[Rfam]
Overview:
The record is a 180-nucleotide sequence from Psychrobacillus soli, which matches "Lysine riboswitch aptamer" in Rfam. The family's consensus secondary structure is taken from published work. The match comes from Rfam's covariance-model search (120 bits).
RNA sequence: AGUGAAGAUAGAGGUGCGAACUGACAAGAGUACUUAGCGACAGGGUGAAAAGAUCCGAUUAUCGCUAAUGGAAAGGGUCAUUCGCCGAAACGUAGAAUAGCUUUUCCUAUUCUAGGUUGGUUCUGCAUUGAAUAAAUGUAGGAUUGUCAGAAUUCAGUAUUCUGGAGGGCUAUCUCACAU
Numbered sequence: 001a002g003u004g005a006a007g008a009u010a011g012a013g014g015u016g017c018g019a020a021c022u023g024a025c026a027a028g029a030g031u032a033c034u035u036a037g038c039g040a041c042a043g044g045g046u047g048a049a050a051a052g053a054u055c056c057g058a059u060u061a062u063c064g065c066u067a068a069u070g071g072a073a074a075g076g077g078u079c080a081u082u083c084g085c086c087g088a089a090a091c092g093u094a095g096a097a098u099a100g101c102u103u104u105u106c107c108u109a110u111u112c113u114a115g116g117u118u119g120g121u122u123c124u125g126c127a128u129u130g131a132a133u134a135a136a137u138g139u140a141g142g143a144u145u146g147u148c149a150g151a152a153u154u155c156a157g158u159a160u161u162c163u164g165g166a167g168g169g170c171u172a173u174c175u176c177a178c179a180u
Stems, first nucleotide, its partner, number of pairs: 006175006016085005022080004034068007089118003093114008119145011147165007